[Rfam]
RNA: c-di-GMP-I-GGC riboswitch aptamer
RNA sequence: UCACGAAAGGGCACACCCGUCGCGAGGCGGGGUCGCAAAGCCAUGGGGCCCACGCGGUCCGCCAGGCUGCCGAAC
Numbered sequence: 001u002c003a004c005g006a007a008a009g010g011g012c013a014c015a016c017c018c019g020u021c022g023c024g025a026g027g028c029g030g031g032g033u034c035g036c037a038a039a040g041c042c043a044u045g046g047g048g049c050c051c052a053c054g055c056g057g058u059c060c061g062c063c064a065g066g067c068u069g070c071c072g073a074a075c
Stems, first nucleotide, its partner, number of pairs: 011036002016031006034061001039068004044064003047059003